RNA sequence: UCUUAAAAAGUGCAAACCUAUCGUGCGAUAGGAACGCAAAGUCAUGAGUCUUUAUAUGUUAUAAAGAUAGUCGGGUUAAAUAU
Numbered sequence: 001u002c003u004u005a006a007a008a009a010g011u012g013c014a015a016a017c018c019u020a021u022c023g024u025g026c027g028a029u030a031g032g033a034a035c036g037c038a039a040a041g042u043c044a045u046g047a048g049u050c051u052u053u054a055u056a057u058g059u060u061a062u063a064a065a066g067a068u069a070g071u072c073g074g075g076u077u078a079a080a081u082a083u
Base pairs, nucleotide, nucleotide: 012037013036017032018031019030020029021028022027040077041076042075043074045073046072047071048068049067050066051065052064053063054062055061056060
RNA: c-di-GMP-I riboswitch aptamer